Shown here is a 60-nucleotide RNA sequence from Streptomyces populi, a member of the family "Actino-pnp RNA". The family's consensus secondary structure is taken from published work. Lineage of the source: Bacteria > Bacillati > Actinomycetota > Actinomycetes > Streptomyces.

RNA sequence: GCCGGUCCUCGGUAGUGGCCCCCGGGCGCGAGAGCCCGGGUGCUUCGAUCGAAGACCGGC
Numbered sequence: 001g002c003c004g005g006u007c008c009u010c011g012g013u014a015g016u017g018g019c020c021c022c023c024g025g026g027c028g029c030g031a032g033a034g035c036c037c038g039g040g041u042g043c044u045u046c047g048a049u050c051g052a053a054g055a056c057c058g059g060c
Base pairs, nucleotide, nucleotide: 001060002059003058004057005056006055007054009052010051011050012049013048017044018043019042021040022039023038024037025036026035027034